[Rfam]
Record summary:
A member of the RNA family "Early nodulin 40" from Aquilegia coerulea, 233 nucleotides long. The match comes from Rfam's covariance-model search (69 bits). The source organism's lineage runs through Eukaryota, Streptophytina, Euphyllophyta, Ranunculaceae and Aquilegia. Gene Ontology term of the family: nodulation. Rfam 15.1 lists 341 matches to the family in 193 species.

RNA sequence: CUGCAGUGGCAGGAGUUUAAACAUGGGUCUAAAGAAGCAUGGCAUUUUGGAGCAAGGGACUUAACACCCUUCUUCAGAAUUAAAUCAGUUUGUUUUUAUGCUUAGCCAUCUUCUCUGCAAUUCUACAGGCUUUAAACUAGAACGCUCUAUCAUAAAUUUAGUUAGGAUGGUAAGCUAAAGCAAACUGAAUAGGCAAGUCACAGAAUGGCAAUUACAGACUCCUCAUGAGUCUU
Dot-bracket structure: ................................................(((.....................)))............(((((..............(.(....................................................................).).....)))))..........................(((((.....)))))..